[Rfam]
RNA sequence: AAUUUUGGGUAAUUGCGGUCUAGCUUGACUAGGCUGAGGAAAGUCCAUGCUCGCACAAGCUGAGAUGCUUGUAGUGUUCGUGCUUAGCGAAACCAUAAGCUAAGGCCUUUAUCAAAUGAUAAAGUAACGGCGGAAAAAAUAGCUAAGGUUGUAAAACUAUGCUUGAGUAUUCCUGAAAAGUGCCACAGUGACGAAGCCAUUAUGGAAACGUAAUGGGUGGAACGCGGUAAACCCCUCGAGCGAGCAACCCAAACUUUGGUAGGGGCACUCUUUCUAAGGAAAUGAACGAGAGAAAGAGGCAAGUAAUUGCAGACAGAUAAUUACCUCGGGAGUGUGCAGUCACCUGACUCGCAUUCCCUGACAGAACAUGGCUUACAGAA
Numbered sequence: 001a002a003u004u005u006u007g008g009g010u011a012a013u014u015g016c017g018g019u020c021u022a023g024c025u026u027g028a029c030u031a032g033g034c035u036g037a038g039g040a041a042a043g044u045c046c047a048u049g050c051u052c053g054c055a056c057a058a059g060c061u062g063a064g065a066u067g068c069u070u071g072u073a074g075u076g077u078u079c080g081u082g083c084u085u086a087g088c089g090a091a092a093c094c095a096u097a098a099g100c101u102a103a104g105g106c107c108u109u110u111a112u113c114a115a116a117u118g119a120u121a122a123a124g125u126a127a128c129g130g131c132g133g134a135a136a137a138a139a140u141a142g143c144u145a146a147g148g149u150u151g152u153a154a155a156a157c158u159a160u161g162c163u164u165g166a167g168u169a170u171u172c173c174u175g176a177a178a179a180g181u182g183c184c185a186c187a188g189u190g191a192c193g194a195a196g197c198c199a200u201u202a203u204g205g206a207a208a209c210g211u212a213a214u215g216g217g218u219g220g221a222a223c224g225c226g227g228u229a230a231a232c233c234c235c236u237c238g239a240g241c242g243a244g245c246a247a248c249c250c251a252a253a254c255u256u257u258g259g260u261a262g263g264g265g266c267a268c269u270c271u272u273u274c275u276a277a278g279g280a281a282a283u284g285a286a287c288g289a290g291a292g293a294a295a296g297a298g299g300c301a302a303g304u305a306a307u308u309g310c311a312g313a314c315a316g317a318u319a320a321u322u323a324c325c326u327c328g329g330g331a332g333u334g335u336g337c338a339g340u341c342a343c344c345u346g347a348c349u350c351g352c353a354u355u356c357c358c359u360g361a362c363a364g365a366a367c368a369u370g371g372c373u374u375a376c377a378g379a380a
Stems, first nucleotide, its partner, number of pairs: 004380003007376001008325007016036006041374003045371005050244005055072006078239003082235001083104006105128001107124007129234002132173004141163003147158003180232002182228003197216008248264003268298007299310004328358008

Notes:
A member of the RNA family "Bacterial RNase P class B" from Carnobacterium divergens, 380 nucleotides long. The family is grouped with related families in Rfam's "RNaseP clan". The family's RNA type in Rfam is ribozyme. Rfam links the family to the GO terms ribonuclease P activity, dimeric ribonuclease P complex and tRNA processing. Lineage of the source: Bacteria > Bacillati > Bacillota > Lactobacillales > Carnobacterium divergens.